A member of the RNA family "Plastid-psbA-1 3UTR RNA", 125 nucleotides long. It is one of the family's seed sequences. From the family's description: Plastid psbA-1 is a non-coding RNA (ncRNA) present in plastids. It was identified in inverted repeat sequences in the 3 prime untranslate region (3UTR) of photosystem II quinone-binding protein (psbA). The family's consensus secondary structure was predicted with LocARNA. For this family Rfam cites "Retrograde signaling in plants: A critical review focusing on the GUN pathway and beyond" (Richter et al., Plant Commun, 2023).

[Rfam]
RNA sequence: UUGAAGUUCCAUCUACAAAUGGAUAAGGACUUUGGUUUGGUCUUAGUAUAGACCCGUUUUUGAAAAUAAAGGAGCAAUAAUCAACUUUCUUCUUUUAUCAAGAAGGUUGGUAUUGCUCCUUUAUU
Numbered sequence: 001u002u003g004a005a006g007u008u009c010c011a012u013c014u015a016c017a018a019a020u021g022g023a024u025a026a027g028g029a030c031u032u033u034g035g036u037u038u039g040g041u042c043u044u045a046g047u048a049u050a051g052a053c054c055c056g057u058u059u060u061u062g063a064a065a066a067u068a069a070a071g072g073a074g075c076a077a078u079a080a081u082c083a084a085c086u087u088u089c090u091u092c093u094u095u096u097a098u099c100a101a102g103a104a105g106g107u108u109g110g111u112a113u114u115g116c117u118c119c120u121u122u123a124u125u
Stems, first nucleotide, its partner, number of pairs: 008023005068122012083107001087104005